[Rfam]
RNA sequence: GGGAAAUCUGGCUGUGACGUCUGUCACCCCAUUGAUCACCAGGGUUGAUUUGGCUGAUCUGGCUGACUAGGCGGGUGUCCUCCCUCAACACUCCACAUGCAUCCCUCUCAAGCUGUGUGCUCGGUUGAAGAGGAAGAGCUCCCUGAUAGAGACAGUGCCGUUCAUUGGUCAAGGGUAUAUGGUAGCUCUUCUCCCCUGCUAGAACCUCCAAACAAGCUCAAGGUCCGUUUGUAGGAGAACAUAGGGUAGUCGAGCUUCCAAGACUGCAGACACAUCCAAGUGAGGCGCUGCACGGGGCAGUUUGCCAUUGUUU
Numbered sequence: 001g002g003g004a005a006a007u008c009u010g011g012c013u014g015u016g017a018c019g020u021c022u023g024u025c026a027c028c029c030c031a032u033u034g035a036u037c038a039c040c041a042g043g044g045u046u047g048a049u050u051u052g053g054c055u056g057a058u059c060u061g062g063c064u065g066a067c068u069a070g071g072c073g074g075g076u077g078u079c080c081u082c083c084c085u086c087a088a089c090a091c092u093c094c095a096c097a098u099g100c101a102u103c104c105c106u107c108u109c110a111a112g113c114u115g116u117g118u119g120c121u122c123g124g125u126u127g128a129a130g131a132g133g134a135a136g137a138g139c140u141c142c143c144u145g146a147u148a149g150a151g152a153c154a155g156u157g158c159c160g161u162u163c164a165u166u167g168g169u170c171a172a173g174g175g176u177a178u179a180u181g182g183u184a185g186c187u188c189u190u191c192u193c194c195c196c197u198g199c200u201a202g203a204a205c206c207u208c209c210a211a212a213c214a215a216g217c218u219c220a221a222g223g224u225c226c227g228u229u230u231g232u233a234g235g236a237g238a239a240c241a242u243a244g245g246g247u248a249g250u251c252g253a254g255c256u257u258c259c260a261a262g263a264c265u266g267c268a269g270a271c272a273c274a275u276c277c278a279a280g281u282g283a284g285g286c287g288c289u290g291c292a293c294g295g296g297g298c299a300g301u302u303u304g305c306c307a308u309u310g311u312u313u
Stems, first nucleotide, its partner, number of pairs: 001084003016079010028065001029062003034059004039053002103155001105151003108124002111121003125146003132142003185255003191249002194246005206237004212232005278313003282308001284306003287301005
RNA: 7SK RNA